[Rfam]
RNA: Small nucleolar RNA Z43
Organism: Taxus chinensis
RNA sequence: GGACAAUGAUGAAGAUUAUGAAAGGUCUCGUUCGGCGUAAUGGCAAACAACCUUGACGACAAUUCAUAUAUAUCACCACCCAUAAUCUGAGUCC
Numbered sequence: 001g002g003a004c005a006a007u008g009a010u011g012a013a014g015a016u017u018a019u020g021a022a023a024g025g026u027c028u029c030g031u032u033c034g035g036c037g038u039a040a041u042g043g044c045a046a047a048c049a050a051c052c053u054u055g056a057c058g059a060c061a062a063u064u065c066a067u068a069u070a071u072a073u074c075a076c077c078a079c080c081c082a083u084a085a086u087c088u089g090a091g092u093c094c
Stems, first nucleotide, its partner, number of pairs: 001094004045054002